The family of this 75-nucleotide RNA sequence from Sagittarius serpentarius is "mir-101 microRNA precursor family". The match comes from Rfam's covariance-model search (91 bits). The source organism's lineage runs through Eukaryota, Metazoa, Amniota, Accipitrimorphae and Sagittarius. The family's consensus secondary structure was predicted with RNAalifold. The literature on the family includes a 2002 paper in Curr Biol by Lagos-Quintana et al., "Identification of tissue-specific microRNAs from mouse".
RNA sequence: UGUCCUUUUUCAGUUAUCAUGGUACCGGUGCUGUAUACAUGAAAGGUACAGUACUGUGAUAACUGGAGAAUGGUA
Numbered sequence: 001u002g003u004c005c006u007u008u009u010u011c012a013g014u015u016a017u018c019a020u021g022g023u024a025c026c027g028g029u030g031c032u033g034u035a036u037a038c039a040u041g042a043a044a045g046g047u048a049c050a051g052u053a054c055u056g057u058g059a060u061a062a063c064u065g066g067a068g069a070a071u072g073g074u075a
Stems, first nucleotide, its partner, number of pairs: 011065015027049001029048004